[Rfam]
Background:
The record is a 108-nucleotide sequence from Drosophila grimshawi, which matches "mir-274 microRNA precursor family" in Rfam. The base pairs follow the family's consensus structure, which was predicted with RNAalifold. On this family, see Ruby et al., Genome Res 2007: "Evolution, biogenesis, expression, and target predictions of a substantially expanded set of Drosophila microRNAs". The match comes from Rfam's covariance-model search (95 bits). NCBI's taxonomy places the organism under Eukaryota, Panarthropoda, Eumetabola, Muscomorpha, Hawaiian Drosophila.

RNA sequence: CGUGUUGCAGUUUCGGUUUGUGACCGACACUAACGGGUAGUUAAAGGGCAUCCUCGCAUUCUGCUGGCUUACUCGUUUUUGCGAUCACAAAUUCUGAAAUUGCAACGA
Numbered sequence: 001c002g003u004g005u006u007g008c009a010g011u012u013u014c015g016g017u018u019u020g021u022g023a024c025c026g027a028c029a030c031u032a033a034c035g036g037g038u039a040g041u042u043a044a045a046g047g048g049c050a051u052c053c054u055c056g057c058a059u060u061c062u063g064c065u066g067g068c069u070u071a072c073u074c075g076u077u078u079u080u081g082c083g084a085u086c087a088c089a090a091a092u093u094c095u096g097a098a099a100u101u102g103c104a105a106c107g108a
Base pairs, nucleotide, nucleotide: 003107004106005105006104007103008102009101010100013097014096015095017091018090019089020088021087022086023085025083026082028081029080032077033076034075035074036073037072038071039070